[Rfam]
RNA sequence: UCGUAACACGAACCGGUGCUAAAGGAUCCUGCCCCACGGCUACUGACAGGUGUUGUUGGGGCAGAGACCCUUUAGCACCGGUCAGAGCCACGUG
Numbered sequence: 001u002c003g004u005a006a007c008a009c010g011a012a013c014c015g016g017u018g019c020u021a022a023a024g025g026a027u028c029c030u031g032c033c034c035c036a037c038g039g040c041u042a043c044u045g046a047c048a049g050g051u052g053u054u055g056u057u058g059g060g061g062c063a064g065a066g067a068c069c070c071u072u073u074a075g076c077a078c079c080g081g082u083c084a085g086a087g088c089c090a091c092g093u094g
Stems, first nucleotide, its partner, number of pairs: 003091002007087001009085001012082014027067001030064001032060003036056002043049002
Rfam assigns this 94-nucleotide RNA from Sorghum bicolor to the family "MIR5387 microRNA precursor family". Its family is annotated with RISC complex and miRNA-mediated post-transcriptional gene silencing in the Gene Ontology. Pairs were carried over by alignment from the consensus structure, which was predicted with RNAalifold. The source organism's lineage runs through Eukaryota, Viridiplantae, Streptophyta, Mesangiospermae and Sorghum.